[Rfam]
Rfam assigns this 116-nucleotide sequence from Sinomonas humi to the family "mraW RNA". It is annotated as a cis-regulatory element. A search with the family's covariance model found it, with a score of 51 bits. The organism belongs to Sinomonas, within Bacteria. The base pairs follow the family's consensus structure, which is taken from published work.
RNA sequence: AACGGUCGGCGGACCGAGAUCUCCAGCCGCCCGCGGCCCCGUCCUGGCUCACCUUCCCCGGAGCCAGGGAGGGACCCACGGUGCGGAGGGGGAUCCCGGCUCGCCGAAGUGCAGGA
Numbered sequence: 001a002a003c004g005g006u007c008g009g010c011g012g013a014c015c016g017a018g019a020u021c022u023c024c025a026g027c028c029g030c031c032c033g034c035g036g037c038c039c040c041g042u043c044c045u046g047g048c049u050c051a052c053c054u055u056c057c058c059c060g061g062a063g064c065c066a067g068g069g070a071g072g073g074a075c076c077c078a079c080g081g082u083g084c085g086g087a088g089g090g091g092g093a094u095c096c097c098g099g100c101u102c103g104c105c106g107a108a109g110u111g112c113a114g115g116a
Stems, first nucleotide, its partner, number of pairs: 010103003014099003018095002021092004027086004031081003038073003043068008